Shown here is a 127-nucleotide RNA from Oryctolagus cuniculus, a member of the family "Small nucleolar RNA SNORA47".
RNA sequence: UGGAGGACUGAGAAGGUGAGCAGCCCCUGCCGUGCUGUUCCUGCCGGUGAGGACCUCCGACAGCAAAGGGCUGCCUGGCCAAGGCCCCCCUGCCGCCCCGGGGCAGCGCCGCGCCAGCCCACAGUCC
Numbered sequence: 001u002g003g004a005g006g007a008c009u010g011a012g013a014a015g016g017u018g019a020g021c022a023g024c025c026c027c028u029g030c031c032g033u034g035c036u037g038u039u040c041c042u043g044c045c046g047g048u049g050a051g052g053a054c055c056u057c058c059g060a061c062a063g064c065a066a067a068g069g070g071c072u073g074c075c076u077g078g079c080c081a082a083g084g085c086c087c088c089c090c091u092g093c094c095g096c097c098c099c100g101g102g103g104c105a106g107c108g109c110c111g112c113g114c115c116a117g118c119c120c121a122c123a124g125u126c127c
Base pairs, nucleotide, nucleotide: 002058003057004056005055006054015045016044017043018042019039020038021037022036023035024034078119080117083115084114090106091105092104093103094102096101

It scores 79 bits against the family's covariance model. Rfam classes the family as an H/ACA-box small nucleolar RNA.